[Rfam]
RNA: ASdes TB sRNA
RNA sequence: AGUGCGACCGGAUCGACGGCCCGGGUGACGACGAGGUAGUCGCGCAGCGCGAUGCCGUGCCGGUUCUC
Numbered sequence: 001a002g003u004g005c006g007a008c009c010g011g012a013u014c015g016a017c018g019g020c021c022c023g024g025g026u027g028a029c030g031a032c033g034a035g036g037u038a039g040u041c042g043c044g045c046a047g048c049g050c051g052a053u054g055c056c057g058u059g060c061c062g063g064u065u066c067u068c
Base pairs, nucleotide, nucleotide: 005062006061008059013028016026017025035056036055037054038053040052041051042050043049044048